[Rfam]
RNA sequence: UGAUAAAAGGAUUCAAAGUCAUAAAUCUAUGCACUUGUGCAUAAUGAUUUAUGACCUUGAAGACUUAACAGAUAUGAGGAUGAAGCAUGUUAAUGCAUAAUCCGAAUGGCUGUGAAUUGCGUGACAAUUCAUUAUCA
Numbered sequence: 001u002g003a004u005a006a007a008a009g010g011a012u013u014c015a016a017a018g019u020c021a022u023a024a025a026u027c028u029a030u031g032c033a034c035u036u037g038u039g040c041a042u043a044a045u046g047a048u049u050u051a052u053g054a055c056c057u058u059g060a061a062g063a064c065u066u067a068a069c070a071g072a073u074a075u076g077a078g079g080a081u082g083a084a085g086c087a088u089g090u091u092a093a094u095g096c097a098u099a100a101u102c103c104g105a106a107u108g109g110c111u112g113u114g115a116a117u118u119g120c121g122u123g124a125c126a127a128u129u130c131a132u133u134a135u136c137a
Base pairs, nucleotide, nucleotide: 001137002136003135004134005133006132010064012062013061016057018055019054020053021052022051023050024049025048026047028044029042030041031040032039033038068113069112070111071110073108074107075106078103079102080101081100085096086095087094088093114130115129116128117127118126119125

A member of the RNA family "Clostridiales-1 RNA" from Butyrivibrio proteoclasticus, 137 nucleotides long. By type it is a small RNA. The source organism's lineage runs through Bacteria, Bacillati, Bacillota, Clostridia and Butyrivibrio proteoclasticus.